The record is a 104-nucleotide RNA sequence from Dioscorea zingiberensis, which matches "Small nucleolar RNA Z279/snoR105/snoR108" in Rfam. Rfam describes the family as follows. This family includes the plant snoRNAs known as Z279, snoR105 and snoR108.

RNA sequence: GGGAUGUGAUGAGUGGUAAACGCACGCACCUUGAUGCGUGUCGAGUGUCCGCCCAAAGCCUGUUACGACAAAUGGCACACUCCAAUCUUUACCAAUCUGAUCCC
Numbered sequence: 001g002g003g004a005u006g007u008g009a010u011g012a013g014u015g016g017u018a019a020a021c022g023c024a025c026g027c028a029c030c031u032u033g034a035u036g037c038g039u040g041u042c043g044a045g046u047g048u049c050c051g052c053c054c055a056a057a058g059c060c061u062g063u064u065a066c067g068a069c070a071a072a073u074g075g076c077a078c079a080c081u082c083c084a085a086u087c088u089u090u091a092c093c094a095a096u097c098u099g100a101u102c103c104c
Base pairs, nucleotide, nucleotide: 001104002103003102004101014094015093016092017091018090023040024039025038026037027036043082044081045080046079047078048077049075060074063071